Glycine riboswitch aptamer: an 89-nucleotide sequence from Neokomagataea tanensis.
[Rfam]
RNA sequence: GUGAUCAACACGGGAGAGACUAGCCGCGAGGCUGGCGCCGAAGGAGCAACCGCCCCGGAAACUCUCAGGCUAAAGGACCGGUUGAUUUU
Dot-bracket structure: .....((((.(((......((((........)))).(((((..(((...((.....))...))))).))).......))))))).....
Pairs were carried over by alignment from the consensus structure.